A member of the RNA family "Group II catalytic intron D1-D4-1" from Roseimaritima multifibrata, 87 nucleotides long. Gene Ontology term of the family: Group II intron splicing. For this family Rfam cites "The ins and outs of group II introns" (Bonen and Vogel, Trends Genet, 2001). Taxonomically the source falls in Roseimaritima (Bacteria, Planctomycetota, Planctomycetia, Pirellulaceae).
[Rfam]
Nucleotides: 087
Stems, first nucleotide, its partner, number of pairs: 002021004007016003035044003045087003054080003061075003
Number, partner (000 for none) and nucleotide at each position: 001000c002021g003020c004019g005018g006000c007016g008015g009014c010000g011000a012000a013000a014009g015008c016007c017000a018005c019004c020003g021002u022000g023000g024000g025000c026000g027000g028000u029000g030000u031000a032000g033000a034000a035044c036043u037042c038000a039000a040000c041000a042037g043036a044035g045087g046086u047085c048000a049000u050000a051000g052000u053000a054080c055079u056078g057000a058000a059000u060000u061075u062074c063073c064000g065000a066000u067000c068000c069000c070000a071000a072000c073063g074062g075061a076000a077000a078056c079055a080054g081000g082000a083000a084000g085047g086046a087045c